[Rfam]
RNA sequence: AUACUUACCUGGAUGGGGUCAAUGGGUGAUCAAGAAGGCCCAUGGCCUAGAAAGGUGACUUCCAUUGCACUUAGGAGGGGUGCCUUUCUAAGGUCUACCCAAGUGGUGGAGCCUACAUCAUAAUUUGUUGCUGAGUGGGCCUGCGUUCGCGCGGCCCACA
Numbered sequence: 001a002u003a004c005u006u007a008c009c010u011g012g013a014u015g016g017g018g019u020c021a022a023u024g025g026g027u028g029a030u031c032a033a034g035a036a037g038g039c040c041c042a043u044g045g046c047c048u049a050g051a052a053a054g055g056u057g058a059c060u061u062c063c064a065u066u067g068c069a070c071u072u073a074g075g076a077g078g079g080g081u082g083c084c085u086u087u088c089u090a091a092g093g094u095c096u097a098c099c100c101a102a103g104u105g106g107u108g109g110a111g112c113c114u115a116c117a118u119c120a121u122a123a124u125u126u127g128u129u130g131c132u133g134a135g136u137g138g139g140c141c142u143g144c145g146u147u148c149g150c151g152c153g154g155c156c157c158a159c160a
Base pairs, nucleotide, nucleotide: 012119013118014117015116016048017047018046019045020044021043023042024041025040026039027038049089050088051087053086055083056082057081059079060078061077062075063074091114092113093112094110095109096108098106099105135159136158137157138156139155142153143152144151145150
RNA: U1 spliceosomal RNA